[Rfam]
RNA sequence: GAGGCGUGUUGCAUUUCUGGGGUCAAAAGCUCUGGGAACAACUGGACCAGCACGUCUUGGUGGGUUUGCGAAUAGCACAGUGGUAGUGCAACAGCCGUCCUAGCUGUCGGUCGCGGGUUCAAUCCCCGCUUCGAUGAAAAACGCAAAGACUGGUCCAGUGGCGGACGUAAGUCGCCAAAUGCUCCGGCCCUCGGGUAACGGAGUCAUCUCAAGGGUCGCAAGCCCGCGAGGUGUCGAUAGGAAGAGCUUCGUCAGCCGGUUAGCGCCGGUGAGUGGGUCGCAAGCCCAGCGGGGAAGGAACUGUCGAGUAGUUCGCCAUGAUGGGUCAAACGCCAGACCCGCAAUCCCUUCGGGGUGCGCAAGAACGGCGGCGAUGAUCUCGGACUGGACUACCGCAAGGGGUCUGGUGGACGUCGAGGGAAUACCUGGGGUCGCACCUGGGGAAUAAUCCUCGAAGCGGGAUUGCUGAUGGGUGUAGUCUCAGCCC
Numbered sequence: 001g002a003g004g005c006g007u008g009u010u011g012c013a014u015u016u017c018u019g020g021g022g023u024c025a026a027a028a029g030c031u032c033u034g035g036g037a038a039c040a041a042c043u044g045g046a047c048c049a050g051c052a053c054g055u056c057u058u059g060g061u062g063g064g065u066u067u068g069c070g071a072a073u074a075g076c077a078c079a080g081u082g083g084u085a086g087u088g089c090a091a092c093a094g095c096c097g098u099c100c101u102a103g104c105u106g107u108c109g110g111u112c113g114c115g116g117g118u119u120c121a122a123u124c125c126c127c128g129c130u131u132c133g134a135u136g137a138a139a140a141a142c143g144c145a146a147a148g149a150c151u152g153g154u155c156c157a158g159u160g161g162c163g164g165a166c167g168u169a170a171g172u173c174g175c176c177a178a179a180u181g182c183u184c185c186g187g188c189c190c191u192c193g194g195g196u197a198a199c200g201g202a203g204u205c206a207u208c209u210c211a212a213g214g215g216u217c218g219c220a221a222g223c224c225c226g227c228g229a230g231g232u233g234u235c236g237a238u239a240g241g242a243a244g245a246g247c248u249u250c251g252u253c254a255g256c257c258g259g260u261u262a263g264c265g266c267c268g269g270u271g272a273g274u275g276g277g278u279c280g281c282a283a284g285c286c287c288a289g290c291g292g293g294g295a296a297g298g299a300a301c302u303g304u305c306g307a308g309u310a311g312u313u314c315g316c317c318a319u320g321a322u323g324g325g326u327c328a329a330a331c332g333c334c335a336g337a338c339c340c341g342c343a344a345u346c347c348c349u350u351c352g353g354g355g356u357g358c359g360c361a362a363g364a365a366c367g368g369c370g371g372c373g374a375u376g377a378u379c380u381c382g383g384a385c386u387g388g389a390c391u392a393c394c395g396c397a398a399g400g401g402g403u404c405u406g407g408u409g410g411a412c413g414u415c416g417a418g419g420g421a422a423u424a425c426c427u428g429g430g431g432u433c434g435c436a437c438c439u440g441g442g443g444a445a446u447a448a449u450c451c452u453c454g455a456a457g458c459g460g461g462a463u464u465g466c467u468g469a470u471g472g473g474u475g476u477a478g479u480c481u482c483a484g485c486c487c
Base pairs, nucleotide, nucleotide: 001058002057003056004055005054006053007052008042009041010040011039015037016036017035018034019033020032021031022030023029044156045155046154047153048152049151050150143219144218158319159318160317161316162315163314164313165312166311172374173373174372175371176370181204182203183202184201185200186199187196188195189194205233206232207231208230209229213225214224215223216222236305237304238303239302240301249292250291251290252289274288275287276286277285278284332369333368334367376464377463378462380460381459382458384408385407386406387405388404389403390402410480411479412478415454416453417452418451419450420449472486473485474484
The record is a 487-nucleotide sequence from Shapirovirus cbk, which matches "Giant, ornate, lake- and Lactobacillales-derived (GOLLD) RNA" in Rfam. The family's consensus secondary structure is taken from published work. The source organism's lineage runs through Viruses, Duplodnaviria, Caudoviricetes, Shapirovirus and Shapirovirus cbk. On this family, see Weinberg et al., Nature 2009: "Exceptional structured noncoding RNAs revealed by bacterial metagenome analysis".